[Rfam]
The family of this 74-nucleotide RNA from Myotis lucifugus is "mir-9193 microRNA precursor family". Pairs were carried over by alignment from the consensus structure, which was predicted with RNAalifold. Lineage of the source: Eukaryota > Metazoa > Craniata > Tetrapoda > Myotis.

RNA sequence: CUUGGCGGAGGGGAGUCCCUUAGCCCAGAUUGUGAGAGGGCACAGGCCAGGCCAAGGGACCCCACCAGUGCAUG
Numbered sequence: 001c002u003u004g005g006c007g008g009a010g011g012g013g014a015g016u017c018c019c020u021u022a023g024c025c026c027a028g029a030u031u032g033u034g035a036g037a038g039g040g041c042a043c044a045g046g047c048c049a050g051g052c053c054a055a056g057g058g059a060c061c062c063c064a065c066c067a068g069u070g071c072a073u074g
Base pairs, nucleotide, nucleotide: 003072004071010065012063013062015060016059017058018057019056020055021054023052024051025050028047030045031044032043033042034041